[Rfam]
RNA sequence: UAGACUGAUGCUAAAGUUCCUGAUGGCCAAGCAGGUCAUGAAAAAACCUUGACCAACCUCCUUCCUGCACUGGCUGGUGCAAAUACGCUGUACGGUGCAG
Numbered sequence: 001u002a003g004a005c006u007g008a009u010g011c012u013a014a015a016g017u018u019c020c021u022g023a024u025g026g027c028c029a030a031g032c033a034g035g036u037c038a039u040g041a042a043a044a045a046a047c048c049u050u051g052a053c054c055a056a057c058c059u060c061c062u063u064c065c066u067g068c069a070c071u072g073g074c075u076g077g078u079g080c081a082a083a084u085a086c087g088c089u090g091u092a093c094g095g096u097g098c099a100g
Base pairs, nucleotide, nucleotide: 003012025032033062034061035060077098079096080095
Dot-bracket structure: ..(........)............(......)(((........................)))..............(.((..............)).)..
A member of the RNA family "Pyrrolysine insertion sequence mttB", 100 nucleotides long. The literature on the family includes a 2013 paper in BMC Bioinformatics by Theil Have et al., "Effects of using coding potential, sequence conservation and mRNA structure conservation for predicting pyrroly-sine containing genes". Pairs were carried over by alignment from the consensus structure, which was predicted with CMfinder. Rfam 15.1 lists 416 matches to the family in 326 species.